Rfam assigns this 132-nucleotide RNA from Salix viminalis to the family "Small nucleolar RNA snoR74". Pairs were carried over by alignment from the consensus structure, which was predicted with WAR. It is annotated as an H/ACA-box small nucleolar RNA. The literature on the family includes a 2002 paper in Curr Biol by Marker et al., "Experimental RNomics: identification of 140 candidates for small non-messenger RNAs in the plant Arabidopsis thaliana". The organism belongs to Salix, within Eukaryota.
[Rfam]
RNA sequence: AAAAAUGCAGGGGCUUGUUGCCUAUGUGAACGAGUCUCGCGCAAAUGUCAGGGGAACUAAUUGCGUUGUUGUUGGGAUGAGUCUUUAAAGGCAGUGCCAAUGACUAAAGGUUCAGUAAAUGAUGGCUCAUGG
Numbered sequence: 001a002a003a004a005a006u007g008c009a010g011g012g013g014c015u016u017g018u019u020g021c022c023u024a025u026g027u028g029a030a031c032g033a034g035u036c037u038c039g040c041g042c043a044a045a046u047g048u049c050a051g052g053g054g055a056a057c058u059a060a061u062u063g064c065g066u067u068g069u070u071g072u073u074g075g076g077a078u079g080a081g082u083c084u085u086u087a088a089a090g091g092c093a094g095u096g097c098c099a100a101u102g103a104c105u106a107a108a109g110g111u112u113c114a115g116u117a118a119a120u121g122a123u124g125g126c127u128c129a130u131g132g
Stems, first nucleotide, its partner, number of pairs: 005048003011037002014034004064124007078114007